About this RNA:
The family of this 79-nucleotide RNA sequence from Homo sapiens is "mir-3202 microRNA precursor family".
RNA sequence: AUUAAUAUGGAAGGGAGAAGAGCUUUAAUGCUCUGAAAAUGACUCCAAUCAUUAAAGCUCUUCUCCCUUCCAUAUUAAU
Numbered sequence: 001a002u003u004a005a006u007a008u009g010g011a012a013g014g015g016a017g018a019a020g021a022g023c024u025u026u027a028a029u030g031c032u033c034u035g036a037a038a039a040u041g042a043c044u045c046c047a048a049u050c051a052u053u054a055a056a057g058c059u060c061u062u063c064u065c066c067c068u069u070c071c072a073u074a075u076u077a078a079u
Base pairs, nucleotide, nucleotide: 001079002078003077004076005075006074007073008072009071010070011069012068013067014066015065016064017063018062019061020060021059022058023057024056025055026054027053028052029051030050035045036044